Small nucleolar RNA SNORA69: a 134-nucleotide RNA from Albula goreensis. U69 is a member of the H/ACA class of small nucleolar RNAs (snoRNAs) which act as guides in the the modification of uridines to pseudouridines. The source organism's lineage runs through Eukaryota, Actinopterygii, Actinopteri, Elopocephalai and Albula.

[Rfam]
RNA sequence: AAAGCAGGUUGCAAUUACAGUGCUUAAUUCUGUGGAAGUACUGCCAUUACCCUGCUAACAGUAUCACACUGCUGUGGAGUUUUAACGACCUCACAACUGCCUAGUUUUGAGGGCGCUCUGCUACAGUGACAUGC
Numbered sequence: 001a002a003a004g005c006a007g008g009u010u011g012c013a014a015u016u017a018c019a020g021u022g023c024u025u026a027a028u029u030c031u032g033u034g035g036a037a038g039u040a041c042u043g044c045c046a047u048u049a050c051c052c053u054g055c056u057a058a059c060a061g062u063a064u065c066a067c068a069c070u071g072c073u074g075u076g077g078a079g080u081u082u083u084a085a086c087g088a089c090c091u092c093a094c095a096a097c098u099g100c101c102u103a104g105u106u107u108u109g110a111g112g113g114c115g116c117u118c119u120g121c122u123a124c125a126g127u128g129a130c131a132u133g134c
Base pairs, nucleotide, nucleotide: 003056004055005054006053007052008051018043019042020041021040022039023038024037025036067128068127069126070125071124074121075120076119077118086115087114089112090111091110092109093108095106096105097104